Description:
The family of this 144-nucleotide RNA from Blastococcus sp. TF02A-26 is "c-di-AMP riboswitch aptamer (ydaO/yuaA leader)". The organism belongs to Blastococcus, within Bacteria.
RNA sequence: GCGGCGGGAACGCCGAGGUGAGCCGGGGACCCACCGCAGCACUGGGGUGAGUUCUCGUGUGCGUCCUCGCGGCGCACGGAGAUAGGGCACGUCUUCCCAGCCCGAACCCGUCAGCUAACUCGGUAGGCGGUUGCUGAGGAAGAA
Numbered sequence: 001g002c003g004g005c006g007g008g009a010a011c012g013c014c015g016a017g018g019u020g021a022g023c024c025g026g027g028g029a030c031c032c033a034c035c036g037c038a039g040c041a042c043u044g045g046g047g048u049g050a051g052u053u054c055u056c057g058u059g060u061g062c063g064u065c066c067u068c069g070c071g072g073c074g075c076a077c078g079g080a081g082a083u084a085g086g087g088c089a090c091g092u093c094u095u096c097c098c099a100g101c102c103c104g105a106a107c108c109c110g111u112c113a114g115c116u117a118a119c120u121c122g123g124u125a126g127g128c129g130g131u132u133g134c135u136g137a138g139g140a141a142g143a144a
Stems, first nucleotide, its partner, number of pairs: 022124006032044002045109003053082004085103004
This family represents a conserved RNA structure found upstream of the ydaO and yuaA genes in Bacillus subtilis and related genes in other bacteria.